RNA sequence: UUCUUAUCCAGAGAGGUGGAGGGACUGGCCCUUUGAAACCUCGGCAACAGACUUAUUUAAGAACUGUGCCAACUCCUGUGGUAGUCAUACCAUGAAGAUAAGAA
Numbered sequence: 001u002u003c004u005u006a007u008c009c010a011g012a013g014a015g016g017u018g019g020a021g022g023g024a025c026u027g028g029c030c031c032u033u034u035g036a037a038a039c040c041u042c043g044g045c046a047a048c049a050g051a052c053u054u055a056u057u058u059a060a061g062a063a064c065u066g067u068g069c070c071a072a073c074u075c076c077u078g079u080g081g082u083a084g085u086c087a088u089a090c091c092a093u094g095a096a097g098a099u100a101a102g103a104a
Stems, first nucleotide, its partner, number of pairs: 001104008013042005021031003025078001027076002043070004048066002052061003074096001079092005